A member of the RNA family "Small nucleolar RNA SNORD97" from Theropithecus gelada, 139 nucleotides long.
Rfam 15.1 lists 639 matches to the family in 614 species.
Its family is annotated with RNA processing and nucleolus in the Gene Ontology.
On this family, see Vitali et al., Nucleic Acids Res 2003: "Identification of 13 novel human modification guide RNAs".

RNA sequence: UUGCCCGAUGAUUAUAAAAAGACGCGUUAUUAAGAGGACUUAAUGCUGGAGUUCUUUACAUUUUUCUCUCUUUUUUGUACUUAAUUUUUCUUUCUUUGUCCAGCAUCCUGUGAGUGAAGAUUAUGAGAUAUGAGGGCAA
Numbered sequence: 001u002u003g004c005c006c007g008a009u010g011a012u013u014a015u016a017a018a019a020a021g022a023c024g025c026g027u028u029a030u031u032a033a034g035a036g037g038a039c040u041u042a043a044u045g046c047u048g049g050a051g052u053u054c055u056u057u058a059c060a061u062u063u064u065u066c067u068c069u070c071u072u073u074u075u076u077g078u079a080c081u082u083a084a085u086u087u088u089u090c091u092u093u094c095u096u097u098g099u100c101c102a103g104c105a106u107c108c109u110g111u112g113a114g115u116g117a118a119g120a121u122u123a124u125g126a127g128a129u130a131u132g133a134g135g136g137c138a139a
Stems, first nucleotide, its partner, number of pairs: 001139006035055007